[Rfam]
RNA sequence: AUGUACAAACUCGUACAUUCCGGUAGCUGCGCUCCGGCCGUACCCCGCUGCGGCCCGCUCGCUACGAUUUCUUCGCA
Numbered sequence: 001a002u003g004u005a006c007a008a009a010c011u012c013g014u015a016c017a018u019u020c021c022g023g024u025a026g027c028u029g030c031g032c033u034c035c036g037g038c039c040g041u042a043c044c045c046c047g048c049u050g051c052g053g054c055c056c057g058c059u060c061g062c063u064a065c066g067a068u069u070u071c072u073u074c075g076c077a
Stems, first nucleotide, its partner, number of pairs: 002017005021036003048075001050073001052071002
Overview:
The record is a 77-nucleotide RNA sequence from Sulfuritalea hydrogenivorans, which matches "Xanthomonas sRNA sX9" in Rfam. NCBI's taxonomy places the organism under Bacteria, Pseudomonadati, Pseudomonadota, Nitrosomonadales, Sulfuritalea hydrogenivorans. The family's RNA type in Rfam is small RNA. The base pairs follow the family's consensus structure, which was predicted with RNAalifold.